[Rfam]
RNA sequence: UCUGUUCACGGUGAUGGAUCCCGCCGGAACACCCCGCACAUUAGAUUCGGGGCGUUCGAACCGCCUCUUGGCUAAUGGUUCCUACCUUUGC
Number, nucleotide and partner (000 for none) at each position: 001u000002c000003u000004g000005u000006u000007c000008a000009c000010g025011g024012u023013g022014a000015u000016g082017g081018a080019u000020c078021c077022c013023g012024c011025c010026g000027g000028a000029a000030c000031a000032c000033c000034c000035c000036g000037c000038a000039c000040a000041u000042u000043a000044g000045a000046u000047u000048c000049g000050g000051g000052g000053c000054g000055u000056u000057c000058g000059a000060a000061c000062c000063g072064c071065c070066u000067c000068u000069u000070g065071g064072c063073u000074a000075a000076u000077g021078g020079u000080u018081c017082c016083u000084a000085c000086c000087u000088u000089u000090g000091c000